[Rfam]
RNA sequence: UCUAAGCGUAGCCAUGAGUUUCCAUGUCCAACUUUGAUCGUCCGUUUUAUUUGAAUUUUUUUAUGAUUAGUAUUAUUAUUAGAUGAUAAAAUAUAAAUAGUACUUUAUGCGUGGCUUCUAGCUUUUUAUUUUUUUCAAAAAAUUUUUAAAUAAGAUGGACAAUUAAAGUUGUACAUGGAAACUCAUGGCUGCACUUAAA
Numbered sequence: 001u002c003u004a005a006g007c008g009u010a011g012c013c014a015u016g017a018g019u020u021u022c023c024a025u026g027u028c029c030a031a032c033u034u035u036g037a038u039c040g041u042c043c044g045u046u047u048u049a050u051u052u053g054a055a056u057u058u059u060u061u062u063a064u065g066a067u068u069a070g071u072a073u074u075a076u077u078a079u080u081a082g083a084u085g086a087u088a089a090a091a092u093a094u095a096a097a098u099a100g101u102a103c104u105u106u107a108u109g110c111g112u113g114g115c116u117u118c119u120a121g122c123u124u125u126u127u128a129u130u131u132u133u134u135u136c137a138a139a140a141a142a143u144u145u146u147u148a149a150a151u152a153a154g155a156u157g158g159a160c161a162a163u164u165a166a167a168g169u170u171g172u173a174c175a176u177g178g179a180a181a182c183u184c185a186u187g188g189c190u191g192c193a194c195u196u197a198a199a
Base pairs, nucleotide, nucleotide: 027173029171030170031169032168033167034166035165036164037163038162040160041159042158043157044156045155046154047153048152049151050150
RNA: MIR812 microRNA precursor family